[Rfam]
RNA sequence: UUAACUCGAAUUUGUAUGGAGUUUGAAUGUUUGCCUACGUUUGCCGCUAGGGGCCUUGUUCCAAAUGCAUACAAAUUUGAGUUU
Dot-bracket structure: .......(((((((((.(.(.((.(((((....(((..((.....))..)))....))))).)).).).)))))))))......
The record is an 84-nucleotide RNA sequence from Bombyx mori, which matches "mir-2807 microRNA precursor family" in Rfam.
Taxonomically the source falls in Bombyx (Eukaryota, Eumetazoa, Dicondylia, Pterygota).
Gene Ontology terms of the family: RISC complex and miRNA-mediated post-transcriptional gene silencing.